A member of the RNA family "Alphaproteobacterial sRNA ar45" from Tianweitania sediminis, 148 nucleotides long. A search with the family's covariance model found it, with a score of 152 bits. It is annotated as a small RNA. Taxonomically the source falls in Tianweitania (Bacteria, Pseudomonadati, Pseudomonadota, Alphaproteobacteria).

[Rfam]
RNA sequence: GCCCAAAGUCGCACAUGCCUGUGGGCGUCCCCCGAUCCUCGAAAUGGCGAGGUUAUCGGGACGGUAUCCGGGGACUAACACACCCGGUCGGUUCAGCGGCCAACCGCCGAUCCGAGGACGCCUUGAAGCAAUGACGGUGAGGGCCUUU
Numbered sequence: 001g002c003c004c005a006a007a008g009u010c011g012c013a014c015a016u017g018c019c020u021g022u023g024g025g026c027g028u029c030c031c032c033c034g035a036u037c038c039u040c041g042a043a044a045u046g047g048c049g050a051g052g053u054u055a056u057c058g059g060g061a062c063g064g065u066a067u068c069c070g071g072g073g074a075c076u077a078a079c080a081c082a083c084c085c086g087g088u089c090g091g092u093u094c095a096g097c098g099g100c101c102a103a104c105c106g107c108c109g110a111u112c113c114g115a116g117g118a119c120g121c122c123u124u125g126a127a128g129c130a131a132u133g134a135c136g137g138u139g140a141g142g143g144c145c146u147u148u
Base pairs, nucleotide, nucleotide: 001144002143003142004141008135009134010133011132016130017129018128023123024122025121026120027119028118029117030116031060032059033058034057035056037052038051039050040049041048068087069086070085071084072083088115089114090113091112094109096107097106098105099104
Dot-bracket structure: ((((...((((....(((....(((((((((((((.(((((......)))))...))))).......(((((..........)))))((((..(.((((....)))).)..))))))))))))....))).)))).....))))....